The family of this 599-nucleotide part of an RNA from Naegleria lovaniensis is "Eukaryotic small subunit ribosomal RNA".
The literature on the family includes a 2001 paper in Science by Yusupov et al., "Crystal structure of the ribosome at 5.5 A resolution".
The match comes from Rfam's covariance-model search (1384 bits).
Lineage of the source: Eukaryota > Eutetramitea > Acrasida > Naegleriidae > Naegleria.
Clan: SSU clan.
Its family is annotated with ribosome and structural constituent of ribosome in the Gene Ontology.
Pairs were carried over by alignment from the consensus structure, which is taken from published work.

RNA sequence: GGGGAGUAUAGUCGCAAGACCGAAACUUAAAGGAAUUGACGGAAAGGCACCACCAGGAGUGGAGUCUGCGGCUUAAUUCGACUCAACACGGGGAAACUCACCAGGUCAGGACACAAGUUUGAUUGACAGGUUAAUAGCCCUUUCUUGAUUGUGUGGUGGGUAGUGCAUGGCCGUUUCCAGUUCGUGGAGUGAUCUGUCUUGUUAAUUCAGAUAACGAACGAGACCUAAGCCUUUAACUAGCCGUAGGCCUCUUCCUUCGGGGAGGGGUUAGUUUGUCGGAACAGGCUUUUAGCUUGUUCCAAAACCUACGUGACUUUUGUCAGCUUCUUAAAGGGACUUCAUUCGUUCUUGUAGAAUGAGGAAGAUUUAGGCCAUAACAGGUCUGUGAUGCUCUUAGAUGUCCUGGGCUGCACGCGUACUACAAUAACGGUACCAGCGAGCGCUAUGGUUUUUUAACCCCUUAUCCUAAUAGGAUUGGGUAAACUUUUCAAACACCGUUAUGACAGGGAUCGAGGAUUGGAACAUCCUCGUGAACGAGGAAUUCCUAGUAAGCGUGGUUCAUCAUACCACAUUGAUUACGUCCCUGCCUUUUGUACACA
Numbered sequence: 001g002g003g004g005a006g007u008a009u010a011g012u013c014g015c016a017a018g019a020c021c022g023a024a025a026c027u028u029a030a031a032g033g034a035a036u037u038g039a040c041g042g043a044a045a046g047g048c049a050c051c052a053c054c055a056g057g058a059g060u061g062g063a064g065u066c067u068g069c070g071g072c073u074u075a076a077u078u079c080g081a082c083u084c085a086a087c088a089c090g091g092g093g094a095a096a097c098u099c100a101c102c103a104g105g106u107c108a109g110g111a112c113a114c115a116a117g118u119u120u121g122a123u124u125g126a127c128a129g130g131u132u133a134a135u136a137g138c139c140c141u142u143u144c145u146u147g148a149u150u151g152u153g154u155g156g157u158g159g160g161u162a163g164u165g166c167a168u169g170g171c172c173g174u175u176u177c178c179a180g181u182u183c184g185u186g187g188a189g190u191g192a193u194c195u196g197u198c199u200u201g202u203u204a205a206u207u208c209a210g211a212u213a214a215c216g217a218a219c220g221a222g223a224c225c226u227a228a229g230c231c232u233u234u235a236a237c238u239a240g241c242c243g244u245a246g247g248c249c250u251c252u253u254c255c256u257u258c259g260g261g262g263a264g265g266g267g268u269u270a271g272u273u274u275g276u277c278g279g280a281a282c283a284g285g286c287u288u289u290u291a292g293c294u295u296g297u298u299c300c301a302a303a304a305c306c307u308a309c310g311u312g313a314c315u316u317u318u319g320u321c322a323g324c325u326u327c328u329u330a331a332a333g334g335g336a337c338u339u340c341a342u343u344c345g346u347u348c349u350u351g352u353a354g355a356a357u358g359a360g361g362a363a364g365a366u367u368u369a370g371g372c373c374a375u376a377a378c379a380g381g382u383c384u385g386u387g388a389u390g391c392u393c394u395u396a397g398a399u400g401u402c403c404u405g406g407g408c409u410g411c412a413c414g415c416g417u418a419c420u421a422c423a424a425u426a427a428c429g430g431u432a433c434c435a436g437c438g439a440g441c442g443c444u445a446u447g448g449u450u451u452u453u454u455a456a457c458c459c460c461u462u463a464u465c466c467u468a469a470u471a472g473g474a475u476u477g478g479g480u481a482a483a484c485u486u487u488u489c490a491a492a493c494a495c496c497g498u499u500a501u502g503a504c505a506g507g508g509a510u511c512g513a514g515g516a517u518u519g520g521a522a523c524a525u526c527c528u529c530g531u532g533a534a535c536g537a538g539g540a541a542u543u544c545c546u547a548g549u550a551a552g553c554g555u556g557g558u559u560c561a562u563c564a565u566a567c568c569a570c571a572u573u574g575a576u577u578a579c580g581u582c583c584c585u586g587c588c589u590u591u592u593g594u595a596c597a598c599a
Stems, first nucleotide, its partner, number of pairs: 001028003011020003037597002039594003043591007052581002056545005061422001063420003067416004071411002077092004101406005107400001112155004125144002128141003159394002162392004168388001169386001170382003173378003180219006186195003199210003225370004230334007239325003337361008426499006438486003459479002463475004506535001511530007551573002554570005